RNA: Small nucleolar RNA SNORA24
RNA sequence: CUUUAUUCACUUUUGGGGCCUGUCAGCUGUGACAUGCUCUCUUAGUAGCCCAUGGAAAUGCUUUUUGCCAUUGGAAAAGCUGUUAAUCUUUAUAUUAUAUCAGAUUUGGACUUGCACAAUUAGCAUUC
Numbered sequence: 001c002u003u004u005a006u007u008c009a010c011u012u013u014u015g016g017g018g019c020c021u022g023u024c025a026g027c028u029g030u031g032a033c034a035u036g037c038u039c040u041c042u043u044a045g046u047a048g049c050c051c052a053u054g055g056a057a058a059u060g061c062u063u064u065u066u067g068c069c070a071u072u073g074g075a076a077a078a079g080c081u082g083u084u085a086a087u088c089u090u091u092a093u094a095u096u097a098u099a100u101c102a103g104a105u106u107u108g109g110a111c112u113u114g115c116a117c118a119a120u121u122a123g124c125a126u127u128c
Stems, first nucleotide, its partner, number of pairs: 002056005015041004021034004066125003071119003074115001076113002080103003085098001